The family of this 102-nucleotide sequence from Turicibacter sp. H121 is "SAM riboswitch aptamer (S box leader)". Lineage of the source: Bacteria > Bacillota > Erysipelotrichia > Turicibacteraceae > Turicibacter. Rfam 15.1 lists 9,625 matches to the family in 4,158 species. The SAM riboswitch is found upstream of a number of genes which code for proteins involved in methionine or cysteine biosynthesis in Gram-positive bacteria.

RNA sequence: UCCUUAUCGAGAGAAGUGGAGGGACAGGCCCGAUGAAGCUUCAGCAACCAGUACAAUGUACAAAGGUGCUAAAUCCGACAGAGCUAUUCUGAAAGAUGAGGG
Numbered sequence: 001u002c003c004u005u006a007u008c009g010a011g012a013g014a015a016g017u018g019g020a021g022g023g024a025c026a027g028g029c030c031c032g033a034u035g036a037a038g039c040u041u042c043a044g045c046a047a048c049c050a051g052u053a054c055a056a057u058g059u060a061c062a063a064a065g066g067u068g069c070u071a072a073a074u075c076c077g078a079c080a081g082a083g084c085u086a087u088u089c090u091g092a093a094a095g096a097u098g099a100g101g102g
Base pairs, nucleotide, nucleotide: 001102002101003100004099005098006097007096008095013042014041015040016039017038021031022030023029027076028075043070044069045068046067048066049065051061052060053059074094079091080090081089082088083087